RNA sequence: GUCCAUUCCGCCUGACACUACGUCUCAACCUCUGAAAUGUCGAGCAGGUGAGCAAAGUCUCAGGUGUUGUGGCCA
Number, nucleotide and partner (000 for none) at each position: 001g000002u000003c072004c071005a070006u069007u000008c000009c066010g065011c064012c063013u062014g061015a060016c000017a058018c057019u056020a000021c000022g000023u000024c052025u051026c050027a049028a000029c048030c047031u046032c000033u000034g000035a000036a000037a000038u000039g000040u000041c000042g000043a000044g000045c000046a031047g030048g029049u027050g026051a025052g024053c000054a000055a000056a019057g018058u017059c000060u015061c014062a013063g012064g011065u010066g009067u000068u000069g006070u005071g004072g003073c000074c000075a000